Record summary
T-box leader: a 222-nucleotide sequence from Liquorilactobacillus ghanensis. The literature on the family includes a 1994 paper in J Bacteriol by Grundy et al., "Interaction between the acceptor end of tRNA and the T box stimulates antitermination in the Bacillus subtilis tyrS gene: a new role for the discriminator base". The base pairs follow the family's consensus structure, which is taken from published work. Rfam links the family to the GO term tRNA binding.

RNA sequence: UGAAAAACUACGAAGAAAACUAGUAAAAUCAACGAUCGACACAGAGAAAGCUAUUAUUGCUGAAAUUAGCUUGAGAGAGUGGUUUGAAUUUCAUUUUCUGAGUUGUCAGCCGGGAUUUGACGUAUGUCGGUGAAAGGUUGGCCGGUUAAAGCCGUUAUUAAGUUGAGAGUUGAAGAAGAGUUUCUUCAAAAUUAGGGUGGUAUCGCGUACCUCGUCCCUUUA
Numbered sequence: 001u002g003a004a005a006a007a008c009u010a011c012g013a014a015g016a017a018a019a020c021u022a023g024u025a026a027a028a029u030c031a032a033c034g035a036u037c038g039a040c041a042c043a044g045a046g047a048a049a050g051c052u053a054u055u056a057u058u059g060c061u062g063a064a065a066u067u068a069g070c071u072u073g074a075g076a077g078a079g080u081g082g083u084u085u086g087a088a089u090u091u092c093a094u095u096u097u098c099u100g101a102g103u104u105g106u107c108a109g110c111c112g113g114g115a116u117u118u119g120a121c122g123u124a125u126g127u128c129g130g131u132g133a134a135a136g137g138u139u140g141g142c143c144g145g146u147u148a149a150a151g152c153c154g155u156u157a158u159u160a161a162g163u164u165g166a167g168a169g170u171u172g173a174a175g176a177a178g179a180g181u182u183u184c185u186u187c188a189a190a191a192u193u194a195g196g197g198u199g200g201u202a203u204c205g206c207g208u209a210c211c212u213c214g215u216c217c218c219u220u221u222a
Base pairs, nucleotide, nucleotide: 007103008102015098016097017096018095026085027084028083029082030081031080039072049071050070051069052068053067106141107140108139109138110137111136143154144153145152170189171188172187173186174185175184176183194219195218196217197216205215206214207213

Lineage of the source: Bacteria > Bacillati > Bacillota > Bacilli > Liquorilactobacillus ghanensis.